[Rfam]
RNA sequence: AAUGGCAUUUAUUAUAUUUUAUGAAAACAAUUACAACAAAUACCUGGUGGUGGAAAAAUUUACGUCAAACGUCGUGAAGUAACAUCGCUAUAGUAUAUAAUCUCAUACAAAAGGCUUGUC
Dot-bracket structure: ...................................(.(.(((..(.(.((((.....(((.(((.....))).....))).....)))).).)..)))..).).................
Bacteroidete tryptophan peptide leader RNA: a 120-nucleotide RNA from Salegentibacter mishustinae. Its family is annotated with regulation of gene expression and S-adenosylmethionine metabolic process in the Gene Ontology. The base pairs follow the family's consensus structure, which is taken from published work. The family's RNA type in Rfam is cis-regulatory leader. Lineage of the source: Bacteria > Pseudomonadati > Flavobacteriia > Flavobacteriales > Salegentibacter.